c-di-GMP-I-GGC riboswitch aptamer: a 105-nucleotide sequence from Photobacterium proteolyticum.

RNA sequence: CACGAACAAGGCAAACCAUCCGAAAGGAUGGGACGCAAAGCUUCCGGCCUAAAAGUGGUUAGUUUAUCAAUAACUAAGUUGCUUAUGGUAGCGGGGUUGCCGAUG
Numbered sequence: 001c002a003c004g005a006a007c008a009a010g011g012c013a014a015a016c017c018a019u020c021c022g023a024a025a026g027g028a029u030g031g032g033a034c035g036c037a038a039a040g041c042u043u044c045c046g047g048c049c050u051a052a053a054a055g056u057g058g059u060u061a062g063u064u065u066a067u068c069a070a071u072a073a074c075u076a077a078g079u080u081g082c083u084u085a086u087g088g089u090a091g092c093g094g095g096g097u098u099g100c101c102g103a104u105g
Stems, first nucleotide, its partner, number of pairs: 001105001003102002011036002016031006034091001039098004044094003047089003
NCBI's taxonomy places the organism under Bacteria, Pseudomonadati, Pseudomonadota, Gammaproteobacteria, Photobacterium.